[Rfam]
RNA sequence: AAUUUAACAUUGUGCGAAACUUAUAUAUGCUCAUAAUUGGAUGAGCGUUUCUACCAACUACCGUAAUAGUUGUCUAUAAGUUUUCCCGGCAAUCAA
Numbered sequence: 001a002a003u004u005u006a007a008c009a010u011u012g013u014g015c016g017a018a019a020c021u022u023a024u025a026u027a028u029g030c031u032c033a034u035a036a037u038u039g040g041a042u043g044a045g046c047g048u049u050u051c052u053a054c055c056a057a058c059u060a061c062c063g064u065a066a067u068a069g070u071u072g073u074c075u076a077u078a079a080g081u082u083u084u085c086c087c088g089g090c091a092a093u094c095a096a
Stems, first nucleotide, its partner, number of pairs: 018082008029046006055072006

Record summary
Rfam assigns this 96-nucleotide sequence from Hungatella hathewayi to the family "Purine riboswitch aptamer". Riboswitches are metabolite binding domains within certain messenger RNAs that serve as precision sensors for their corresponding targets. The family's consensus secondary structure is taken from published work. The match comes from Rfam's covariance-model search (56 bits). The source organism's lineage runs through Bacteria, Bacillati, Bacillota, Clostridia and Hungatella hathewayi.